Nucleotides: 173
Base pairs, nucleotide, nucleotide: 001173002172003171004170005169006168035082036081037080038079
Number, partner (000 for none) and nucleotide at each position: 001173a002172u003171g004170c005169c006168c007000a008000g009000u010000g011000a012000u013000u014000a015000u016000a017000a018000a019000a020000a021000g022000a023000c024000g025000c026000g027000u028000u029000a030000u031000u032000c033000u034000g035082a036081g037080g038079a039000a040000c041000a042000c043000a044000a045000c046000c047000u048000g049000c050000u051000a052000c053000c054000a055000g056000u057000c058000u059000u060000u061000c062000u063000u064000c065000u066000a067000c068000c069000g070000u071000g072000u073000a074000c075000u076000c077000u078000g079038u080037c081036u082035u083000u084000g085000a086000u087000c088000u089000c090000u091000a092000u093000c094000u095000u096000u097000c098000u099000u100000a101000u102000c103000c104000u105000u106000c107000c108000u109000c110000c111000a112000c113000u114000c115000c116000u117000u118000c119000u120000u121000c122000u123000c124000u125000u126000c127000a128000g129000a130000c131000u132000g133000g134000c135000a136000g137000c138000a139000g140000g141000u142000c143000c144000a145000c146000u147000g148000a149000c150000u151000g152000c153000g154000a155000u156000u157000a158000u159000g160000a161000g162000a163000u164000a165000u166000g167000a168006g169005g170004g171003c172002a173001u
About this RNA: Small nucleolar RNA SNORD97: a 173-nucleotide RNA sequence from Etheostoma spectabile. Rfam 15.1 lists 639 matches to the family in 614 species. The organism belongs to Oligocephalus, within Eukaryota. It is annotated as a C/D-box small nucleolar RNA.